[Rfam]
Nucleotides: 070
Stems, first nucleotide, its partner, number of pairs: 001056008011022004028046005036070006
Number, partner (000 for none) and nucleotide at each position: 001056g002055c003054u004053g005052c006051g007050c008049c009000u010000a011022c012021c013020u014019c015000g016000a017000c018000g019014g020013a021012g022011g023000g024000a025000a026000a027000a028046c029045c030044g031043g032042g033000a034000u035000a036070c037069c038068u039067u040066c041065a042032c043031c044030c045029g046028g047000c048000u049008g050007g051006c052005g053004c054003g055002g056001c057000u058000c059000u060000u061000g062000a063000a064000c065041u066040g067039a068038a069037g070036g

This 70-nucleotide RNA sequence belongs to the Rfam family "int-alpA RNA". The family's consensus secondary structure is taken from published work. Acidobacteria (1 example), Planctomycetes (1 example), Proteobacteria. The family's RNA type in Rfam is small RNA.